Rfam assigns this 141-nucleotide RNA from Miniimonas arenae to the family "FMN riboswitch aptamer (RFN element)".
RNA sequence: AACGUGCUCCGGGGUCGGUGAAAGUCCGAGCCGGCGGUGACAGUCCGCGACCCGCACGAUCUGCCCGAACGGGCAGGCGUGCGGUUGACCUGGUGGAACUCCAGGACCGACGGUGAAAGUCCGGAUGGGAGGAAGCACGCG
Numbered sequence: 001a002a003c004g005u006g007c008u009c010c011g012g013g014g015u016c017g018g019u020g021a022a023a024g025u026c027c028g029a030g031c032c033g034g035c036g037g038u039g040a041c042a043g044u045c046c047g048c049g050a051c052c053c054g055c056a057c058g059a060u061c062u063g064c065c066c067g068a069a070c071g072g073g074c075a076g077g078c079g080u081g082c083g084g085u086u087g088a089c090c091u092g093g094u095g096g097a098a099c100u101c102c103a104g105g106a107c108c109g110a111c112g113g114u115g116a117a118a119g120u121c122c123g124g125a126u127g128g129g130a131g132g133a134a135g136c137a138c139g140c141g
Base pairs, nucleotide, nucleotide: 003139004138005137006136007135008134009132010131016028017027018026030120031119032109033108034048035047036046037045043107044106052084053083054082055081056080057079058078089105090104091103092102093101111123112122113121
A search with the family's covariance model found it, with a score of 87 bits. Taxonomically the source falls in Miniimonas (Bacteria, Bacillati, Micrococcales, Beutenbergiaceae).